[Rfam]
Shown here is a 156-nucleotide RNA from Populus tomentosa, a member of the family "MIR2912 microRNA precursor family".

RNA sequence: UCUAGAACUCAAGAUAUGGGCUAAACACUGAACAGUGUCUAGGCUUCAGGACAGCUUCGGACUUCUUUGUUGUUACUACAAUUUGGACUACAAAACGGCCUUUUUACAUCUUGGGUUCCUCAUGAAAGUUGUAGGCCUAUGUCUUACCUUUCCAUC
Numbered sequence: 001u002c003u004a005g006a007a008c009u010c011a012a013g014a015u016a017u018g019g020g021c022u023a024a025a026c027a028c029u030g031a032a033c034a035g036u037g038u039c040u041a042g043g044c045u046u047c048a049g050g051a052c053a054g055c056u057u058c059g060g061a062c063u064u065c066u067u068u069g070u071u072g073u074u075a076c077u078a079c080a081a082u083u084u085g086g087a088c089u090a091c092a093a094a095a096c097g098g099c100c101u102u103u104u105u106a107c108a109u110c111u112u113g114g115g116u117u118c119c120u121c122a123u124g125a126a127a128g129u130u131g132u133a134g135g136c137c138u139a140u141g142u143c144u145u146a147c148c149u150u151u152c153c154a155u156c
Base pairs, nucleotide, nucleotide: 003154005152006151007150009146011145012144013143014142015141016140017139018138019137020136021134022133023132025130027129028128029127035123036122037121042118043117045115046114048112049111050110051109054105059100060099062098063097068092069091072088073087074086
The match comes from Rfam's covariance-model search (123 bits).